[Rfam]
RNA sequence: ACGCCAGGUAGCUCAGGGGUUAUAUCACCGGUCUCCAGUCUCACGGUCCGUGGGCAUGAGGUUCGAAUCCCGGGCGCGGUCUGGCGUUUUU
Numbered sequence: 001a002c003g004c005c006a007g008g009u010a011g012c013u014c015a016g017g018g019g020u021u022a023u024a025u026c027a028c029c030g031g032u033c034u035c036c037a038g039u040c041u042c043a044c045g046g047u048c049c050g051u052g053g054g055c056a057u058g059a060g061g062u063u064c065g066a067a068u069c070c071c072g073g074g075c076g077c078g079g080u081c082u083g084g085c086g087u088u089u090u091u
Base pairs, nucleotide, nucleotide: 002086003085004084005083006082007081011075012074013073014072016071017070018069019068025066026065

A member of the RNA family "Vault RNA" from Denticeps clupeoides, 91 nucleotides long.
It is annotated as a non-coding RNA gene.
Pairs were carried over by alignment from the consensus structure, which is taken from published work.
It scores 42 bits against the family's covariance model.
About the family: This family of RNAs are found as part of the enigmatic vault ribonucleoprotein complex. The complex consists of a major vault protein (MVP), two minor vault proteins (VPARP and TEP1), and several small untranslated RNA molecules. It has been suggested that the vault complex is involved in drug resistance.
The organism belongs to Denticeps, within Eukaryota.